[Rfam]
RNA: bZIP non canonical Hac1/Xbp1 intron
Organism: Hymenochirus boettgeri
RNA sequence: CCGUUACCGGGUCCGCUGAGUCCGCAGCACUCAGACUACGUGCCCCUCUGCAGCAGGAGCAGGCCCAGACGUCUCCG
Numbered sequence: 001c002c003g004u005u006a007c008c009g010g011g012u013c014c015g016c017u018g019a020g021u022c023c024g025c026a027g028c029a030c031u032c033a034g035a036c037u038a039c040g041u042g043c044c045c046c047u048c049u050g051c052a053g054c055a056g057g058a059g060c061a062g063g064c065c066c067a068g069a070c071g072u073c074u075c076c077g
Stems, first nucleotide, its partner, number of pairs: 001077001003075001006072002009066005016034006043059001045057003